Shown here is an 80-nucleotide RNA from Macleaya cordata, a member of the family "Small nucleolar RNA R160". Rfam describes the family as follows. snoR160 is a C/D box small nucleolar RNA, which acts as a methylation guide for 25S ribosomal RNA in plants. snoR160 has been alternatively named snoZ270 in rice. Rfam 15.1 lists 799 matches to the family in 221 species. The literature on the family includes a 2003 paper in Nucleic Acids Res by Chen et al., "The high diversity of snoRNAs in plants: identification and comparative study of 120 snoRNA genes from Oryza sativa". The match comes from Rfam's covariance-model search (62 bits).
RNA sequence: GGCAAAGUGAUGAGUUGAUAUGCUCUGAAUUUUAUGUGGAAGCAUAUAAUAUCAAAGGUCUUCAAAGUUCUCUGAUUGUG
Numbered sequence: 001g002g003c004a005a006a007g008u009g010a011u012g013a014g015u016u017g018a019u020a021u022g023c024u025c026u027g028a029a030u031u032u033u034a035u036g037u038g039g040a041a042g043c044a045u046a047u048a049a050u051a052u053c054a055a056a057g058g059u060c061u062u063c064a065a066a067g068u069u070c071u072c073u074g075a076u077u078g079u080g
Stems, first nucleotide, its partner, number of pairs: 002079004